Rfam assigns this 90-nucleotide sequence from Rhodoplanes elegans to the family "sRNA-Xcc1". The match comes from Rfam's covariance-model search (55 bits). By type it is a small RNA. NCBI's taxonomy places the organism under Bacteria, Pseudomonadati, Alphaproteobacteria, Nitrobacteraceae, Rhodoplanes.
RNA sequence: GCCGGGAAGGCGGCGGCUAUACAAGACCCUUCGGGGAAAGGCCGUCGCGCGUCGUCUCUGGCGGCGUUGCUAACUUCCCGGCGCCAGUGC
Dot-bracket structure: (((((((((..((((.((........(((....)))...)).))))((((.............))))......)))))))))........